RNA: Glutamine riboswitch aptamer (glnA leader)
RNA sequence: AUCGUUCAUUCACUCUAAAUGUAGCAGUGAACGGAAGUAGGCAUGGGGCCGAAGGAACGCAUU
Numbered sequence: 001a002u003c004g005u006u007c008a009u010u011c012a013c014u015c016u017a018a019a020u021g022u023a024g025c026a027g028u029g030a031a032c033g034g035a036a037g038u039a040g041g042c043a044u045g046g047g048g049c050c051g052a053a054g055g056a057a058c059g060c061a062u063u
Stems, first nucleotide, its partner, number of pairs: 003059005009031005034060001040050003